[Rfam]
RNA sequence: UGAUGUCAGGGUCAAAAGGUCUAAAUCCACAUGAGCUUGCUCAUAGGUGGAUUUAGACCUUGGGACCCACCCCGAUAUGAGCAUAAAAGUGGGAUGAUAAUCCCACGAUAUGCGAAUACUUGGGUGCUAUGUGCCAGUGGCACAUGUUUAGCACCGACCGAAGCGGAGCGUAGAAAGGAUUGUGGGAGUGCAACGCACGGAACAAUCCGUAGGCAUCA
Numbered sequence: 001u002g003a004u005g006u007c008a009g010g011g012u013c014a015a016a017a018g019g020u021c022u023a024a025a026u027c028c029a030c031a032u033g034a035g036c037u038u039g040c041u042c043a044u045a046g047g048u049g050g051a052u053u054u055a056g057a058c059c060u061u062g063g064g065a066c067c068c069a070c071c072c073c074g075a076u077a078u079g080a081g082c083a084u085a086a087a088a089g090u091g092g093g094a095u096g097a098u099a100a101u102c103c104c105a106c107g108a109u110a111u112g113c114g115a116a117u118a119c120u121u122g123g124g125u126g127c128u129a130u131g132u133g134c135c136a137g138u139g140g141c142a143c144a145u146g147u148u149u150a151g152c153a154c155c156g157a158c159c160g161a162a163g164c165g166g167a168g169c170g171u172a173g174a175a176a177g178g179a180u181u182g183u184g185g186g187a188g189u190g191c192a193a194c195g196c197a198c199g200g201a202a203c204a205a206u207c208c209g210u211a212g213g214c215a216u217c218a
Stems, first nucleotide, its partner, number of pairs: 001218007010067004016061015031044005071124005076118003081113004089106007126208001130204003137198003
RNA: Clostridiales-1 RNA
Organism: Firmicutes bacterium CAG:56